RNA sequence: CUGCGAGUAAGUCCUAUCCGAGGCAAUGAUGCCCGCACUUGUGGAAUGGGAGUACUAUGAUAGGGGUCGCAG
Numbered sequence: 001c002u003g004c005g006a007g008u009a010a011g012u013c014c015u016a017u018c019c020g021a022g023g024c025a026a027u028g029a030u031g032c033c034c035g036c037a038c039u040u041g042u043g044g045a046a047u048g049g050g051a052g053u054a055c056u057a058u059g060a061u062a063g064g065g066g067u068c069g070c071a072g
Base pairs, nucleotide, nucleotide: 001072002071003070004069005068006067012065013064014063015062016061017060018059033044034043035042036041
DUF3800-X RNA: a 72-nucleotide sequence.